[Rfam]
RNA sequence: ACAUCAUCAUGGACUGACGGCAGUGGAAUAACCACAGGGAUCAUGAUUGUAAAUAGCCGACCGUCUAGGCAACUGUC
Numbered sequence: 001a002c003a004u005c006a007u008c009a010u011g012g013a014c015u016g017a018c019g020g021c022a023g024u025g026g027a028a029u030a031a032c033c034a035c036a037g038g039g040a041u042c043a044u045g046a047u048u049g050u051a052a053a054u055a056g057c058c059g060a061c062c063g064u065c066u067a068g069g070c071a072a073c074u075g076u077c
Stems, first nucleotide, its partner, number of pairs: 003050002006047006014038002016065005023035004054072001056070003
The family of this 77-nucleotide RNA sequence from Megasphaera sp. UPII 135-E is "ZMP/ZTP riboswitch aptamer (pfl RNA motif)". Pairs were carried over by alignment from the consensus structure, which is taken from published work. A search with the family's covariance model found it, with a score of 48 bits. NCBI's taxonomy places the organism under Bacteria, Bacillati, Bacillota, Negativicutes, Megasphaera.